[Rfam]
RNA sequence: AUUGGAUAUCUGGGAUGAAAGGUGUGCACAUCACGGCCCAUGUCAGACUGUCUCAGUCUGCAAAUCCUGCU
Numbered sequence: 001a002u003u004g005g006a007u008a009u010c011u012g013g014g015a016u017g018a019a020a021g022g023u024g025u026g027c028a029c030a031u032c033a034c035g036g037c038c039c040a041u042g043u044c045a046g047a048c049u050g051u052c053u054c055a056g057u058c059u060g061c062a063a064a065u066c067c068u069g070c071u
Base pairs, nucleotide, nucleotide: 011040012039013038014037016035018068021065022034023033024032044060045059046058047057048056049055050054
The record is a 71-nucleotide RNA sequence from Chelonoidis abingdonii, which matches "Mammalian CPEB3 ribozyme" in Rfam. A search with the family's covariance model found it, with a score of 43 bits.